Shown here is a 184-nucleotide sequence from Clathrospora elynae, a member of the family "U2 spliceosomal RNA". The family's consensus secondary structure is taken from published work. The family's RNA type in Rfam is spliceosomal small nuclear RNA.
RNA sequence: AUCCGAUUUGUGCUUUUGAGUUUUCAUCUCUGACAUUUCUGCAGUUUAAUCUCUGAAACGUUCCUACGGGAACUUUUAAGAUUAUUCUUAAUUUUGAAACCCGCGGAAGGGUCACUGGGCUUGCUCAUACUCAUCUGCACAGUGUCGCCAGUAUUCGCACUACUUCUGGCCGACGCGACUGUCU
Numbered sequence: 001a002u003c004c005g006a007u008u009u010g011u012g013c014u015u016u017u018g019a020g021u022u023u024u025c026a027u028c029u030c031u032g033a034c035a036u037u038u039c040u041g042c043a044g045u046u047u048a049a050u051c052u053c054u055g056a057a058a059c060g061u062u063c064c065u066a067c068g069g070g071a072a073c074u075u076u077u078a079a080g081a082u083u084a085u086u087c088u089u090a091a092u093u094u095u096g097a098a099a100c101c102c103g104c105g106g107a108a109g110g111g112u113c114a115c116u117g118g119g120c121u122u123g124c125u126c127a128u129a130c131u132c133a134u135c136u137g138c139a140c141a142g143u144g145u146c147g148c149c150a151g152u153a154u155u156c157g158c159a160c161u162a163c164u165u166c167u168g169g170c171c172g173a174c175g176c177g178a179c180u181g182u183c184u
Stems, first nucleotide, its partner, number of pairs: 007026001012021003040057001042055003060073005103138005109132002116127004142176005148169004153164001